[Rfam]
RNA sequence: CUGUGCUGAUGACACCCGCACACGUCUGACUCCAGGUGUCAGUGCCAGACCUGAAAAGGUGAACCCACUGGUGCUGCCCUGGGCGAGGGCUGAAGGCUCGUUGGGGUUCCAACAGUCUGAACAGA
Numbered sequence: 001c002u003g004u005g006c007u008g009a010u011g012a013c014a015c016c017c018g019c020a021c022a023c024g025u026c027u028g029a030c031u032c033c034a035g036g037u038g039u040c041a042g043u044g045c046c047a048g049a050c051c052u053g054a055a056a057a058g059g060u061g062a063a064c065c066c067a068c069u070g071g072u073g074c075u076g077c078c079c080u081g082g083g084c085g086a087g088g089g090c091u092g093a094a095g096g097c098u099c100g101u102u103g104g105g106g107u108u109c110c111a112a113c114a115g116u117c118u119g120a121a122c123a124g125a
Base pairs, nucleotide, nucleotide: 001124002123003122004121
This 125-nucleotide sequence from Neogobius melanostomus belongs to the Rfam family "Small nucleolar RNA SNORD22". It is annotated as a C/D-box small nucleolar RNA. The source organism's lineage runs through Eukaryota, Teleostomi, Benthophilinae, Neogobiini and Neogobius. The literature on the family includes a 1996 paper in Nature by Tycowski et al., "A mammalian gene with introns instead of exons generating stable RNA products". The family has 49 seed sequences and 1,081 matches in Rfam 15.1.